[Rfam]
RNA sequence: AUUUGAAACGUUUUGGCCAAAAAUGUAGCCAUGGCAAAGGGGUUUUUUGCAGAAACGUUUCAGAUUU
Dot-bracket structure: ((((((((((((((.((.((((((....((........)).)))))).)).))))))))))))))..